A member of the RNA family "Bacterial RNase P class A" from Paenibacillus lutimineralis, 403 nucleotides long. The match comes from Rfam's covariance-model search (275 bits). Rfam classes the family as a ribozyme. Gene Ontology terms of the family: dimeric ribonuclease P complex, ribonuclease P activity and tRNA processing.
RNA sequence: AAAGUUUGACAGACAAUCGCUGGCGGCUUCGGCCGCGAGAGGAAAGUCCGGGCUCCAUAGGGCAGGAUGCUGGAUAACGUCCAGUCAGCGCGAGCUGAAGGAUAGUGCCACAGAAAUGGACCGCCGAUGGCCGCUAUUAUGGCGGCACAGGCAAGGAUGGAACCGAGGUGUAAGAGACCCCGAGGAACGCUGGUGACUUCGUUCCUGGUAAACCCCAUCUGGAGCAAGACCUAAUGGGACGCAGCUUCCUUGGAAGCAGCCUUUGCCCGAGGCGCGUCUGGGUUGGUCGCUGGAACCACAUAGUAAUAUGUGGUCUAGAUAGAUGAUUGUCACUUACAGCGGGAGGGUAGUUCCCGUUCUUACCGCUACGAGUACAGAACCCGGCUUAUGGCAAACUUUCACC
Numbered sequence: 001a002a003a004g005u006u007u008g009a010c011a012g013a014c015a016a017u018c019g020c021u022g023g024c025g026g027c028u029u030c031g032g033c034c035g036c037g038a039g040a041g042g043a044a045a046g047u048c049c050g051g052g053c054u055c056c057a058u059a060g061g062g063c064a065g066g067a068u069g070c071u072g073g074a075u076a077a078c079g080u081c082c083a084g085u086c087a088g089c090g091c092g093a094g095c096u097g098a099a100g101g102a103u104a105g106u107g108c109c110a111c112a113g114a115a116a117u118g119g120a121c122c123g124c125c126g127a128u129g130g131c132c133g134c135u136a137u138u139a140u141g142g143c144g145g146c147a148c149a150g151g152c153a154a155g156g157a158u159g160g161a162a163c164c165g166a167g168g169u170g171u172a173a174g175a176g177a178c179c180c181c182g183a184g185g186a187a188c189g190c191u192g193g194u195g196a197c198u199u200c201g202u203u204c205c206u207g208g209u210a211a212a213c214c215c216c217a218u219c220u221g222g223a224g225c226a227a228g229a230c231c232u233a234a235u236g237g238g239a240c241g242c243a244g245c246u247u248c249c250u251u252g253g254a255a256g257c258a259g260c261c262u263u264u265g266c267c268c269g270a271g272g273c274g275c276g277u278c279u280g281g282g283u284u285g286g287u288c289g290c291u292g293g294a295a296c297c298a299c300a301u302a303g304u305a306a307u308a309u310g311u312g313g314u315c316u317a318g319a320u321a322g323a324u325g326a327u328u329g330u331c332a333c334u335u336a337c338a339g340c341g342g343g344a345g346g347g348u349a350g351u352u353c354c355c356g357u358u359c360u361u362a363c364c365g366c367u368a369c370g371a372g373u374a375c376a377g378a379a380c381c382c383g384g385c386u387u388a389u390g391g392c393a394a395a396c397u398u399u400c401a402c403c
Base pairs, nucleotide, nucleotide: 001399002398003397004396005395006394007393008392010390011389012331013330014329015328016327017326018325020039021038023036024035025034026033027032044387045386046385048384049383050382051381052380053224054223055222056221060268061267062266063265065220066219067218068217069216070084071083072082073081074080085099086097087096088095089094100215101214105213106212107209108208109207121156122155123152124151125150128147129146131144164182165181167179168178169177184205185204186203187202188201189200192197228288229287230286231285237279238278239277240276241275242274259273260272261271262270263269295314296313297312298311299310300309301308302307

Taxonomically the source falls in Paenibacillus (Bacteria, Bacillati, Bacillota, Paenibacillaceae).